Overview
The record is a 130-nucleotide RNA sequence from Actinobacillus succinogenes, which matches "FMN riboswitch aptamer (RFN element)" in Rfam.
RNA sequence: CCGCAUUCUCAGGGCAGGGUGAAAUUCCCUACUGGCGGUCAAGCCCGCGAGCGUUUGUUAUAAGGCAAAGUCAGCAGAUUUGGUGAAAUUCCAAAGCCAACAGUUACAGUCUGGAUGAAAGAGAGUAAAC
Numbered sequence: 001c002c003g004c005a006u007u008c009u010c011a012g013g014g015c016a017g018g019g020u021g022a023a024a025u026u027c028c029c030u031a032c033u034g035g036c037g038g039u040c041a042a043g044c045c046c047g048c049g050a051g052c053g054u055u056u057g058u059u060a061u062a063a064g065g066c067a068a069a070g071u072c073a074g075c076a077g078a079u080u081u082g083g084u085g086a087a088a089u090u091c092c093a094a095a096g097c098c099a100a101c102a103g104u105u106a107c108a109g110u111c112u113g114g115a116u117g118a119a120a121g122a123g124a125g126u127a128a129a130c
Stems, first nucleotide, its partner, number of pairs: 005126006017029003031110002033099002035048004043097002051075002079095005101113003